[Rfam]
RNA: Plastid-rps12 3UTR RNA
Organism: Potamogeton perfoliatus
RNA sequence: GGUUUCCAUUGGUGCAAAUCCAAUCGUCUCGAUUUGGGAUGAGAAGCAAUUCCCCGUUGGUAGCAAAUCAAAUAGUUAUCCACUAAGCUGGGGAAAUCGCAC
Numbered sequence: 001g002g003u004u005u006c007c008a009u010u011g012g013u014g015c016a017a018a019u020c021c022a023a024u025c026g027u028c029u030c031g032a033u034u035u036g037g038g039a040u041g042a043g044a045a046g047c048a049a050u051u052c053c054c055c056g057u058u059g060g061u062a063g064c065a066a067a068u069c070a071a072a073u074a075g076u077u078a079u080c081c082a083c084u085a086a087g088c089u090g091g092g093g094a095a096a097u098c099g100c101a102c
Stems, first nucleotide, its partner, number of pairs: 009023004052092003056083002059080006